[Rfam]
The record is a 107-nucleotide RNA from Nitrosospira sp. Nl5, which matches "TPP riboswitch aptamer (THI element)" in Rfam. The base pairs follow the family's consensus structure, which is taken from published work. Gene Ontology term of the family: thiamine pyrophosphate binding. Taxonomically the source falls in Nitrosospira (Bacteria, Pseudomonadati, Betaproteobacteria, Nitrosomonadaceae).

RNA sequence: AGCAGCAGCUAGGGGUCCGUUUCCGGAAUCGUCCGGUAAACCGGUGAGAGAGUCCCUUAACACCUGACACGGGUAAUGCCGCCGUAGGGAAGCUGGGAUUAGCAGUC
Numbered sequence: 001a002g003c004a005g006c007a008g009c010u011a012g013g014g015g016u017c018c019g020u021u022u023c024c025g026g027a028a029u030c031g032u033c034c035g036g037u038a039a040a041c042c043g044g045u046g047a048g049a050g051a052g053u054c055c056c057u058u059a060a061c062a063c064c065u066g067a068c069a070c071g072g073g074u075a076a077u078g079c080c081g082c083c084g085u086a087g088g089g090a091a092g093c094u095g096g097g098a099u100u101a102g103c104a105g106u107c
Stems, first nucleotide, its partner, number of pairs: 006095005011057004016051001017044003021040001063088004070081003